[Rfam]
RNA: TPP riboswitch aptamer (THI element)
RNA sequence: AGCCGUUCCGAGGGGUGCCCGCAAGGGCUGAGAUGGCUUUCGAAGCCGAACCCGUCGAACCUGAUCCGGGUCAUACCGGCGGAGGGACUGGAACGCGAUCGCAAG
Number, nucleotide and partner (000 for none) at each position: 001a000002g000003c000004c000005g000006u093007u092008c091009c090010g089011a000012g053013g052014g051015g000016u048017g028018c027019c026020c025021g000022c000023a000024a000025g020026g019027g018028c017029u000030g000031a000032g000033a000034u000035g047036g046037c045038u044039u043040u000041c000042g000043a039044a038045g037046c036047c035048g016049a000050a000051c014052c013053c012054g000055u000056c000057g000058a000059a000060c085061c084062u083063g000064a000065u000066c079067c078068g077069g076070g000071u000072c000073a000074u000075a000076c069077c068078g067079g066080c000081g000082g000083a062084g061085g060086g000087a000088c000089u010090g009091g008092a007093a006094c000095g000096c000097g000098a000099u000100c000101g000102c000103a000104a000105g000